This 103-nucleotide sequence from Diabrotica virgifera belongs to the Rfam family "mir-16 microRNA precursor family". Gene Ontology terms of the family: RISC complex and miRNA-mediated post-transcriptional gene silencing.

RNA sequence: GUCCCAGGAACGCAACUCAUAAAUAUUGGCGAUAUAUUAUACAUUUUAAAGUAGAAGACUUUAAAAUGAUAUCGCCAAUAUUUAUGAGUUGCGUUCCUGGGAC
Numbered sequence: 001g002u003c004c005c006a007g008g009a010a011c012g013c014a015a016c017u018c019a020u021a022a023a024u025a026u027u028g029g030c031g032a033u034a035u036a037u038u039a040u041a042c043a044u045u046u047u048a049a050a051g052u053a054g055a056a057g058a059c060u061u062u063a064a065a066a067u068g069a070u071a072u073c074g075c076c077a078a079u080a081u082u083u084a085u086g087a088g089u090u091g092c093g094u095u096c097c098u099g100g101g102a103c
Base pairs, nucleotide, nucleotide: 001103002102003101005099006098007097011093012092013091014090015089016088017087018086022082023081024080025079026078027077028076029075030074031073032072033071034070035069

Lineage of the source: Eukaryota > Arthropoda > Altocrustacea > Luperini > Diabrotica virgifera. For this family Rfam cites "Frequent deletions and down-regulation of micro- RNA genes miR15 and miR16 at 13q14 in chronic lymphocytic leukemia" (Calin et al., Proc Natl Acad Sci U S A, 2002). A search with the family's covariance model found it, with a score of 43 bits.